Source information
The record is a 75-nucleotide RNA from Alligator mississippiensis, which matches "U1A polyadenylation inhibition element (PIE)" in Rfam. It scores 68 bits against the family's covariance model. A reference for the family is Varani et al. (2000), "The NMR structure of the 38 kDa U1A protein - PIE RNA complex reveals the basis of cooperativity in regulation of polyadenylation by human U1A protein", Nat Struct Biol. Rfam describes the family as follows. This family represents the U1A polyadenylation inhibition element (PIE). PIE is a regulatory RNA which is responsible for the regulation of the length of the polyA tail of the U1A pre-mRNA. The PIE is located in the U1A mRNA 3' UTR. PIE adopts a U-shaped structure, with binding sites for a single U1A protein at each bend and when complexed with the two proteins it blocks activity of poly(A) polymerase (PAP), and inhibits its activity. It is annotated as a cis-regulatory element.
RNA sequence: AUGGAAAGCAUUGUACCCAGGGUCUGGUGCUCAGACAUUGCACCUGGAGCUUCCCGCUGUGUAAUAAAGUUGUUU
Numbered sequence: 001a002u003g004g005a006a007a008g009c010a011u012u013g014u015a016c017c018c019a020g021g022g023u024c025u026g027g028u029g030c031u032c033a034g035a036c037a038u039u040g041c042a043c044c045u046g047g048a049g050c051u052u053c054c055c056g057c058u059g060u061g062u063a064a065u066a067a068a069g070u071u072g073u074u075u
Stems, first nucleotide, its partner, number of pairs: 006052004017047004022036005